[Rfam]
RNA sequence: UGUGAAAACAUCAUUGAGUGCAGCAUUGAUGAAAUUCGAUUUCGAGUCGAUCUUACUUGAUUUCAAGUUAAUCUUACUUAAUUUCGAGUUGAUUUUCAUCGACGCUGCAUUCAAUUAUGUUUUUG
Numbered sequence: 001u002g003u004g005a006a007a008a009c010a011u012c013a014u015u016g017a018g019u020g021c022a023g024c025a026u027u028g029a030u031g032a033a034a035u036u037c038g039a040u041u042u043c044g045a046g047u048c049g050a051u052c053u054u055a056c057u058u059g060a061u062u063u064c065a066a067g068u069u070a071a072u073c074u075u076a077c078u079u080a081a082u083u084u085c086g087a088g089u090u091g092a093u094u095u096u097c098a099u100c101g102a103c104g105c106u107g108c109a110u111u112c113a114a115u116u117a118u119g120u121u122u123u124u125g
Base pairs, nucleotide, nucleotide: 006122007121008120009119010118011117013115014114015113016112017111018110019109020108021107022106023105024104026102027101028100030098031097032096033095034094

This 125-nucleotide RNA sequence from Chenopodium quinoa belongs to the Rfam family "MIR397 microRNA precursor family".
On this family, see Wu et al., Plant Cell 2009: "Rice MicroRNA effector complexes and targets".
Lineage of the source: Eukaryota > Streptophyta > Streptophytina > Caryophyllales > Chenopodium.
Gene Ontology terms of the family: RISC complex and miRNA-mediated post-transcriptional gene silencing.
The match comes from Rfam's covariance-model search (75 bits).